[Rfam]
RNA sequence: ACAGGGUCUCAUUUUUUUGCCCAGGUUGGAGCUGGAGACCAGCCUGGGCAACAAAAUGAGACCCUUC
Numbered sequence: 001a002c003a004g005g006g007u008c009u010c011a012u013u014u015u016u017u018u019g020c021c022c023a024g025g026u027u028g029g030a031g032c033u034g035g036a037g038a039c040c041a042g043c044c045u046g047g048g049c050a051a052c053a054a055a056a057u058g059a060g061a062c063c064c065u066u067c
Base pairs, nucleotide, nucleotide: 007061008060009059010058011057012056013055014054019049020048021047022046023045024044025043032042033041034040